[Rfam]
This 84-nucleotide RNA from Oceanobacillus limi belongs to the Rfam family "c-di-GMP-I riboswitch aptamer". The match comes from Rfam's covariance-model search (77 bits). The organism belongs to Oceanobacillus, within Bacteria. Pairs were carried over by alignment from the consensus structure, which is taken from published work. About the family: GEMM was predicted in a large-scale screen for bacterial structured RNA regulatory elements.
Nucleotides: 084
Stems, first nucleotide, its partner, number of pairs: 012037002017032006040078004045074003048069003055063003
Number, partner (000 for none) and nucleotide at each position: 001000u002000c003000u004000a005000g006000a007000g008000a009000a010000a011000g012037g013036c014000a015000a016000a017032c018031u019030c020029a021028u022027u023000g024000a025000a026000a027022a028021a029020u030019g031018a032017g033000g034000a035000c036013g037012c038000a039000a040078a041077g042076u043075c044000a045074c046073a047072g048069g049068u050067c051000u052000a053000a054000c055063g056062c057061a058000a059000g060000a061057u062056g063055c064000u065000a066000g067050g068049a069048c070000g071000g072047c073046u074045g075043g076042a077041u078040u079000a080000c081000c082000u083000g084000g